[Rfam]
RNA sequence: AAAGCCCCGAGCCAAUAAAGACUGAGAAGAUUGACUCAAGAAAAAA
Numbered sequence: 001a002a003a004g005c006c007c008c009g010a011g012c013c014a015a016u017a018a019a020g021a022c023u024g025a026g027a028a029g030a031u032u033g034a035c036u037c038a039a040g041a042a043a044a045a046a
Base pairs, nucleotide, nucleotide: 006040009037010036011035013033014032015031016030

The record is a 46-nucleotide sequence, which matches "Plastid-rpl16 group II-D1 intron" in Rfam. Plastid-rpl16 is a non-coding RNA (ncRNA) recognised in plastids. It was recognised in and intronic region of a ribosome rpl16 gene. Rfam 15.1 lists 1,446 matches to the family in 693 species. Rfam's curators put it in the seed alignment.